[Rfam]
Annotation: A member of the RNA family "malK-I RNA" from Clostridiales bacterium NK3B98, 176 nucleotides long.
RNA sequence: UCCAAUGGUGCCAUACCACUCCACCUUAUGGUUUGGCAUACAUUCAAAAAGGAGGAACCAAACCGGAGACUCCCGGUGCGGCAGUGUGGAGACCUGUCGUAAUGGAACGCACUCCCUGCGGGUGGUUCCGAGGUAGGUGCAGCGGAGGCUCAUCUAUCAGAGUCGAAGUUAUGUCC
Number, nucleotide and partner (000 for none) at each position: 001u000002c000003c000004a000005a000006u000007g000008g039009u038010g037011c036012c035013a034014u000015a032016c031017c030018a029019c000020u000021c000022c000023a000024c000025c000026u000027u000028a000029u018030g017031g016032u015033u000034u013035g012036g011037c010038a009039u008040a000041c000042a000043u000044u000045c000046a000047a000048a000049a000050a000051g000052g000053a000054g000055g000056a000057a000058c000059c000060a000061a000062a000063c076064c075065g074066g073067a000068g164069a163070c162071u161072c160073c066074c065075g064076g063077u101078g100079c099080g098081g097082c096083a095084g094085u000086g093087u092088g000089g000090a000091g000092a087093c086094c084095u083096g082097u081098c080099g079100u078101a077102a000103u000104g129105g128106a127107a126108c125109g000110c124111a123112c122113u000114c000115c000116c000117u000118g000119c000120g000121g000122g112123u111124g110125g108126u107127u106128c105129c104130g000131a000132g158133g157134u156135a155136g154137g153138u152139g151140c000141a150142g149143c148144g000145g000146a000147g000148g143149c142150u141151c139152a138153u137154c136155u135156a134157u133158c132159a000160g072161a071162g070163u069164c068165g000166a000167a000168g000169u000170u000171a000172u000173g000174u000175c000176c000
It is one of the family's seed sequences.
The base pairs follow the family's consensus structure, which is taken from published work.